[Rfam]
RNA: c-di-AMP riboswitch aptamer (ydaO/yuaA leader)
Organism: Microcoleus sp. FACHB-1515
RNA sequence: UUCACGGGUAAGCCUAAUUCACAUUCAGUCACUUCUUGACUUGAUGAAGCGGAGGAACCACGUUUUGGGGCUAAUCUCGACUGAGAAAGACACCUUCCAGUCUUCGCCCGUCAGCUAACUCCGUCGGCAAUGGAAGGAGCCUCC
Numbered sequence: 001u002u003c004a005c006g007g008g009u010a011a012g013c014c015u016a017a018u019u020c021a022c023a024u025u026c027a028g029u030c031a032c033u034u035c036u037u038g039a040c041u042u043g044a045u046g047a048a049g050c051g052g053a054g055g056a057a058c059c060a061c062g063u064u065u066u067g068g069g070g071c072u073a074a075u076c077u078c079g080a081c082u083g084a085g086a087a088a089g090a091c092a093c094c095u096u097c098c099a100g101u102c103u104u105c106g107c108c109c110g111u112c113a114g115c116u117a118a119c120u121c122c123g124u125c126g127g128c129a130a131u132g133g134a135a136g137g138a139g140c141c142u143c144c
Stems, first nucleotide, its partner, number of pairs: 012128003018048003049124006059067002068109003076085003088103004